[Rfam]
RNA sequence: UGCCACCGACCUUAACCGGCGGUGAGCUUUCGGGUGCUUUAAAUUAAAUAUCUCCCCGCUUGGAUCGGAAAACGGCCGAGACGGUAAA
Numbered sequence: 001u002g003c004c005a006c007c008g009a010c011c012u013u014a015a016c017c018g019g020c021g022g023u024g025a026g027c028u029u030u031c032g033g034g035u036g037c038u039u040u041a042a043a044u045u046a047a048a049u050a051u052c053u054c055c056c057c058g059c060u061u062g063g064a065u066c067g068g069a070a071a072a073c074g075g076c077c078g079a080g081a082c083g084g085u086a087a088a
Stems, first nucleotide, its partner, number of pairs: 002027002004024005010019002056084003059080005065075003

The family of this 88-nucleotide sequence from Dehalococcoides mccartyi is "pan motif".
The family's RNA type in Rfam is cis-regulatory element.
Lineage of the source: Bacteria > Bacillati > Dehalococcoidaceae > Dehalococcoides > Dehalococcoides mccartyi.
It is one of the family's seed sequences.